[Rfam]
RNA sequence: GUGGGCUACGGAGAUAUGUACCCCGUGACUAUUGGGGGAAAGAUAGUGGGAUCUCUGUGUGCCAUCGCUGGUGUGCUAACGAUUGCACUCCCGGUGCCUGUGAUUGUGUCCAAC
Dot-bracket structure: ((.((.(((((..(((.((((...............((.(........((...........))..........).))................)))).)))..))))).)).))
This 114-nucleotide sequence from Electrophorus electricus belongs to the Rfam family "Potassium channel RNA editing signal".
The organism belongs to Electrophorus, within Eukaryota.
The match comes from Rfam's covariance-model search (110 bits).
This family represents a group of sequences related to the human potassium channel Kv1.1 hairpin element which directs the efficient modification of an adenosine to inosine by an adenosine deaminase acting on RNA (ADAR).
Gene Ontology term of the family: adenosine to inosine editing.